[Rfam]
A member of the RNA family "SAM-I/IV (S-adenosyl methionine) riboswitch aptamer" from Phenylobacterium sp. Root1277, 105 nucleotides long. The family's consensus secondary structure is taken from published work. The organism belongs to Phenylobacterium, within Bacteria.
RNA sequence: GUCUCGCAUCAAGAGUUGGGCGUCGCCCAACGCCAACCUGCUUCCCGAGCAAGGUGGCGCUCCCAUUGGGGGGAUGUGGCCGAGGCGGCAACGAACCGGGUGAUC
Numbered sequence: 001g002u003c004u005c006g007c008a009u010c011a012a013g014a015g016u017u018g019g020g021c022g023u024c025g026c027c028c029a030a031c032g033c034c035a036a037c038c039u040g041c042u043u044c045c046c047g048a049g050c051a052a053g054g055u056g057g058c059g060c061u062c063c064c065a066u067u068g069g070g071g072g073g074a075u076g077u078g079g080c081c082g083a084g085g086c087g088g089c090a091a092c093g094a095a096c097c098g099g100g101u102g103a104u105c
Stems, first nucleotide, its partner, number of pairs: 006077005015031001017030001018028004032058003037054003040050003045100002079089004